Background
The family of this 95-nucleotide sequence from Mammaliicoccus stepanovicii is "Glycine riboswitch aptamer". About the family: This family represents the bacterial glycine riboswitch. Its family is annotated with glycine biosynthetic process in the Gene Ontology. Rfam 15.1 lists 9,425 matches to the family in 5,228 species. Lineage of the source: Bacteria > Bacillati > Bacillota > Staphylococcaceae > Mammaliicoccus.

[Rfam]
RNA sequence: UUGAUCAAAGUUAGAGAGAAUGAAUACUAUAUUCAUCGCCGAAGGAGCAAGCUAAUAAUAGUGAAUCUCUCAGGCAAAAGGAUAACUUUGUGACG
Numbered sequence: 001u002u003g004a005u006c007a008a009a010g011u012u013a014g015a016g017a018g019a020a021u022g023a024a025u026a027c028u029a030u031a032u033u034c035a036u037c038g039c040c041g042a043a044g045g046a047g048c049a050a051g052c053u054a055a056u057a058a059u060a061g062u063g064a065a066u067c068u069c070u071c072a073g074g075c076a077a078a079a080g081g082a083u084a085a086c087u088u089u090g091u092g093a094c095g
Base pairs, nucleotide, nucleotide: 006090007089008088009087010086011085012084013083020036021035022034023033038075039074040073041071042070045069046068047067051062052061
On this family, see Mandal et al., Science 2004: "A glycine-dependent riboswitch that uses cooperative binding to control gene expression". Pairs were carried over by alignment from the consensus structure.